[Rfam]
RNA sequence: GAUCAAUGAUGAAAAAUAGCCAAAUCUGAGCAUCAGAAGACUUCUCAGUCUGUUUGGUGCAUGAUCUCUCUAGUUCUGAGA
Numbered sequence: 001g002a003u004c005a006a007u008g009a010u011g012a013a014a015a016a017u018a019g020c021c022a023a024a025u026c027u028g029a030g031c032a033u034c035a036g037a038a039g040a041c042u043u044c045u046c047a048g049u050c051u052g053u054u055u056g057g058u059g060c061a062u063g064a065u066c067u068c069u070c071u072a073g074u075u076c077u078g079a080g081a
Stems, first nucleotide, its partner, number of pairs: 030060005038051004
A member of the RNA family "Small nucleolar RNA U2-19" from Mesocricetus auratus, 81 nucleotides long.
A search with the family's covariance model found it, with a score of 97 bits.
The family's RNA type in Rfam is C/D-box small nucleolar RNA.